Record summary:
ALIL pseudoknot: a 117-nucleotide RNA from Quisquiliibacterium transsilvanicum. On this family, see Mazauric et al., J Biol Chem 2008: "Apical loop-internal loop RNA pseudoknots: a new type of stimulator of -1 translational frameshifting in bacteria". The family's consensus secondary structure is taken from published work. Taxonomically the source falls in Quisquiliibacterium (Bacteria, Pseudomonadati, Pseudomonadota, Burkholderiaceae). The family has 26 seed sequences and 2,146 matches in Rfam 15.1. The match comes from Rfam's covariance-model search (103 bits).
RNA sequence: CGCGUUUUUCGCCCAGGCGGAGCUCGACCGCCGGCUGAAGUGAUGUACGCGUUUGUCCAGGCGCAUCGCGACGCGCACGGGGUCGAGCCGAUCUGCAGAGUCAUGCAGAUUGCCCCG
Numbered sequence: 001c002g003c004g005u006u007u008u009u010c011g012c013c014c015a016g017g018c019g020g021a022g023c024u025c026g027a028c029c030g031c032c033g034g035c036u037g038a039a040g041u042g043a044u045g046u047a048c049g050c051g052u053u054u055g056u057c058c059a060g061g062c063g064c065a066u067c068g069c070g071a072c073g074c075g076c077a078c079g080g081g082g083u084c085g086a087g088c089c090g091a092u093c094u095g096c097a098g099a100g101u102c103a104u105g106c107a108g109a110u111u112g113c114c115c116c117g
Stems, first nucleotide, its partner, number of pairs: 016032005078117005089112002092109006